[Rfam]
Shown here is a 97-nucleotide part of an RNA from Methanosarcina mazei, a member of the family "Archaeal large subunit ribosomal RNA". The literature on the family includes a 2001 paper in Science by Yusupov et al., "Crystal structure of the ribosome at 5.5 A resolution".
RNA sequence: GAUACGGCAUGAAAGGAUCUUUGAUAUGAAGGAACCACUCGCGAGAGUGUUGUACGAAUAUCACUGCCAGUGUCGUAUCUUACGUUUUGAAGAACGG
Numbered sequence: 001g002a003u004a005c006g007g008c009a010u011g012a013a014a015g016g017a018u019c020u021u022u023g024a025u026a027u028g029a030a031g032g033a034a035c036c037a038c039u040c041g042c043g044a045g046a047g048u049g050u051u052g053u054a055c056g057a058a059u060a061u062c063a064c065u066g067c068c069a070g071u072g073u074c075g076u077a078u079c080u081u082a083c084g085u086u087u088u089g090a091a092g093a094a095c096g097g
Stems, first nucleotide, its partner, number of pairs: 001079010015068002022063006031055001036049005083096003
NCBI's taxonomy places the organism under Archaea, Methanobacteriota, Methanomicrobia, Methanosarcina, Methanosarcina mazei.